[Rfam]
RNA sequence: UGAGAUGAAAUCAACAUUUGGACAUGUGAUUUUAUGUUGAUUCCAUCUUAUA
Numbered sequence: 001u002g003a004g005a006u007g008a009a010a011u012c013a014a015c016a017u018u019u020g021g022a023c024a025u026g027u028g029a030u031u032u033u034a035u036g037u038u039g040a041u042u043c044c045a046u047c048u049u050a051u052a
Stems, first nucleotide, its partner, number of pairs: 001050007009042009018029003
A member of the RNA family "MIR1886 microRNA precursor family" from Solanum commersonii, 52 nucleotides long. The source organism's lineage runs through Eukaryota, Embryophyta, Euphyllophyta, Magnoliopsida and Solanum. Gene Ontology terms of the family: miRNA-mediated post-transcriptional gene silencing and RISC complex. It scores 66 bits against the family's covariance model. The base pairs follow the family's consensus structure, which was predicted with RNAalifold.